[Rfam]
RNA sequence: GCACAACCAGGAAAUGGUGUCUUCCUGCACAGAACUGUCCCGUAUUCUUCGGGUCUGAUGGCGCCUACAAAUAG
Numbered sequence: 001g002c003a004c005a006a007c008c009a010g011g012a013a014a015u016g017g018u019g020u021c022u023u024c025c026u027g028c029a030c031a032g033a034a035c036u037g038u039c040c041c042g043u044a045u046u047c048u049u050c051g052g053g054u055c056u057g058a059u060g061g062c063g064c065c066u067a068c069a070a071a072u073a074g
Stems, first nucleotide, its partner, number of pairs: 010025004016065006037055001039053004
Dot-bracket structure: .........[[[[..((((((]]]]...........(.((((.......)))).)....)))))).........

Fluoride riboswitch aptamer (crcB RNA motif): a 74-nucleotide RNA from [Flexibacter] sp. ATCC 35208.
The literature on the family includes a 2012 paper in Science by Baker et al., "Widespread genetic switches and toxicity resistance proteins for fluoride".
The organism belongs to Chitinophaga, within Bacteria.
The match comes from Rfam's covariance-model search (43 bits).